[Rfam]
RNA: Small nucleolar RNA SNORA65
Organism: Scopus umbretta
RNA sequence: CCUGCCACUGUAGCUGUCUUGUAGUGCAUUGACUAGCACAGUCCAGAGGUGAGCUGACAGAAAAUGCCAACUUAGGAAAUAGAGUUAUUCUUCUUGGGGGUAACUUUGUGCUGAAGUUUGGGAACAGAU
Numbered sequence: 001c002c003u004g005c006c007a008c009u010g011u012a013g014c015u016g017u018c019u020u021g022u023a024g025u026g027c028a029u030u031g032a033c034u035a036g037c038a039c040a041g042u043c044c045a046g047a048g049g050u051g052a053g054c055u056g057a058c059a060g061a062a063a064a065u066g067c068c069a070a071c072u073u074a075g076g077a078a079a080u081a082g083a084g085u086u087a088u089u090c091u092u093c094u095u096g097g098g099g100g101u102a103a104c105u106u107u108g109u110g111c112u113g114a115a116g117u118u119u120g121g122g123a124a125c126a127g128a129u
Stems, first nucleotide, its partner, number of pairs: 005049002008046003018036002021033001022031002065122001067120001069119001070117003075112002080108006088100003